This 210-nucleotide RNA from Clostridium thailandense belongs to the Rfam family "glmS glucosamine-6-phosphate activated ribozyme aptamer". Pairs were carried over by alignment from the consensus structure, which is taken from published work. It scores 86 bits against the family's covariance model. Rfam's curators write: This entry contains a glucosamine-6-phosphate activated ribozyme that is found in the mRNA for GlmS. GlmS is an enzyme that uses fructose-6-phosphate and glutamine to generate glucosamine-6-phosphate.
RNA sequence: AAAGUUUUUAUAGUGCCGAAGCUUGGGGACAUCUCCCGGAGGAUAAGUUUACUUUCGGCCGUAGUUACCUACAUAGGUAGCUACGCUCGUAAAUUGACGAGGAUAGGGUUUAUCGAUUAUUCGGCGGAUGCCCUACGGUAUAAGCACUACCGUUAACAAUUGACAAAACUAAGAAGUAAUUCUUAGUACAAAACAAUUAGGUGCUAGUAA
Dot-bracket structure: ...................((.(((.(............................................................).))).))........(((((....((((....))))......)))))(((((.......)))))....((((((......(((((((....))))))).......))))).)..........